[Rfam]
RNA sequence: AGUCCAGGAGAGAGAGGCAGGGUCUGAUUCGCAGCCUCUGUGGCAGCUGUUAAUCAGCCGUUGCCUCUUUCUUUCUCUCCU
Numbered sequence: 001a002g003u004c005c006a007g008g009a010g011a012g013a014g015a016g017g018c019a020g021g022g023u024c025u026g027a028u029u030c031g032c033a034g035c036c037u038c039u040g041u042g043g044c045a046g047c048u049g050u051u052a053a054u055c056a057g058c059c060g061u062u063g064c065c066u067c068u069u070u071c072u073u074u075c076u077c078u079c080c081u
Stems, first nucleotide, its partner, number of pairs: 008073013022059001024057006032049004
Rfam assigns this 81-nucleotide sequence from Myotis davidii to the family "mir-574 microRNA precursor family". On this family, see Nielsen et al., Anim Genet 2010: "MicroRNA identity and abundance in porcine skeletal muscles determined by deep sequencing". Pairs were carried over by alignment from the consensus structure, which was predicted with RNAalifold. Gene Ontology terms of the family: miRNA-mediated post-transcriptional gene silencing and RISC complex. Lineage of the source: Eukaryota > Opisthokonta > Tetrapoda > Amniota > Myotis.